[Rfam]
RNA sequence: GGAUAACACUAUUUUGUUAUCCCGGCCAAUCACAGUCUGCCACGUGGAAAAGUUAUCUCGUGUGGCAUAUCGUGAUUGGCCGGGAAUAGCAAAAUAGUUUAUCC
Number, nucleotide and partner (000 for none) at each position: 001g000002g103003a102004u101005a100006a000007c000008a000009c000010u000011a000012u094013u093014u092015u091016g090017u089018u088019a087020u086021c084022c083023c082024g081025g080026c079027c078028a077029a076030u075031c074032a073033c072034a000035g070036u069037c000038u067039g066040c065041c064042a063043c062044g061045u060046g059047g058048a000049a056050a000051a000052g000053u000054u000055a000056u049057c000058u047059c046060g045061u044062g043063u042064g041065g040066c039067a038068u000069a036070u035071c000072g033073u032074g031075a030076u029077u028078g027079g026080c025081c024082g023083g022084g021085a000086a020087u019088a018089g017090c016091a015092a014093a013094a012095u000096a000097g000098u000099u000100u005101a004102u003103c002104c000
A member of the RNA family "MIR6274 microRNA precursor family" from Prunus avium, 104 nucleotides long.
It scores 82 bits against the family's covariance model.
Rfam 15.1 lists 342 matches to the family in 8 species.
Pairs were carried over by alignment from the consensus structure, which was predicted with RNAalifold.